[Rfam]
RNA: DUF3800-VIII RNA
RNA sequence: UCGACCCUGCAUUGCGCGAACGCCCAAGUGCCACUUGGGAGGGUCCCGGGAAACCGGCUAGCGCGUGCGGGGUUGC
Dot-bracket structure: .(((((((((((.((((...(.(((((((...))))))).)...................))))))))))))))).